[Rfam]
RNA sequence: AGAGGCCCUAUGUGGCUAGGGUGGAAUGCUUGCCUCGUCGCCGUGGCGAUGAAGCAAGCAUUCUGCCAGGCCACUCACGCUGCCCGC
Numbered sequence: 001a002g003a004g005g006c007c008c009u010a011u012g013u014g015g016c017u018a019g020g021g022u023g024g025a026a027u028g029c030u031u032g033c034c035u036c037g038u039c040g041c042c043g044u045g046g047c048g049a050u051g052a053a054g055c056a057a058g059c060a061u062u063c064u065g066c067c068a069g070g071c072c073a074c075u076c077a078c079g080c081u082g083c084c085c086g087c
Base pairs, nucleotide, nucleotide: 004084005083006082012074013073014072015071016070017069020067021066022065023064024063025062026061027060028059029058030057031056032055033054037050038049039048040047041046
This 87-nucleotide RNA sequence from Myotis brandtii belongs to the Rfam family "mir-9195 microRNA precursor family". Its family is annotated with RISC complex and miRNA-mediated post-transcriptional gene silencing in the Gene Ontology. The base pairs follow the family's consensus structure, which was predicted with RNAalifold.